[Rfam]
Shown here is a 95-nucleotide RNA from Marinomonas sp. S3726, a member of the family "Gammaprotebacteria rimP leader". Rfam links the family to the GO term regulation of gene expression. Pairs were carried over by alignment from the consensus structure, which is taken from published work.

RNA sequence: ACAAUGAGUUAGAUUAUUCUGAUUCAUUUGAAGAACCCCUUUAUGGGGUUUUUUGUUAUCUGGAUAUAAUAAAAUGGGCCUAGAGCCCGUUUUUU
Numbered sequence: 001a002c003a004a005u006g007a008g009u010u011a012g013a014u015u016a017u018u019c020u021g022a023u024u025c026a027u028u029u030g031a032a033g034a035a036c037c038c039c040u041u042u043a044u045g046g047g048g049u050u051u052u053u054u055g056u057u058a059u060c061u062g063g064a065u066a067u068a069a070u071a072a073a074a075u076g077g078g079c080c081u082a083g084a085g086c087c088c089g090u091u092u093u094u095u
Stems, first nucleotide, its partner, number of pairs: 032052008076088004
A reference for the family is Naville and Gautheret (2010), "Premature terminator analysis sheds light on a hidden world of bacterial transcriptional attenuation", Genome Biol. It scores 47 bits against the family's covariance model.